[Rfam]
RNA: Group II catalytic intron D1-D4-1
Nucleotides: 076
Stems, first nucleotide, its partner, number of pairs: 001027001004023003008019004040047002049076003058069004
Number, partner (000 for none) and nucleotide at each position: 001027c002000u003000a004023c005022u006021g007000g008019c009018g010017u011016c012000g013000a014000g015000a016011g017010g018009c019008g020000g021006c022005g023004g024000g025000a026000u027001g028000g029000u030000c031000g032000u033000g034000c035000a036000g037000a038000a039000g040047u041046c042000a043000g044000c045000a046041g047040a048000g049076g050075g051074c052000a053000u054000a055000g056000u057000a058069g059068g060067c061066c062000g063000c064000g065000a066061g067060g068059c069058u070000g071000a072000a073000g074051g075050c076049c